[Rfam]
RNA: CyVA-1 RNA
RNA sequence: GGGACGGCACAGGGUUUUCACCGUUUCCACUGUCUUAGGCCUGGCCGAAGGCGAACGGUGUCAGACUAGGCCACGUCUC
Number, nucleotide and partner (000 for none) at each position: 001g079002g078003g077004a076005c075006g074007g000008c000009a033010c032011a031012g030013g000014g000015u000016u000017u000018u000019c000020a000021c000022c000023g000024u000025u000026u000027c000028c000029a000030c012031u011032g010033u009034c000035u000036u000037a000038g000039g071040c070041c069042u068043g067044g066045c000046c064047g000048a000049a000050g000051g000052c000053g000054a000055a000056c000057g000058g000059u000060g000061u000062c000063a000064g046065a000066c044067u043068a042069g041070g040071c039072c000073a000074c006075g005076u004077c003078u002079c001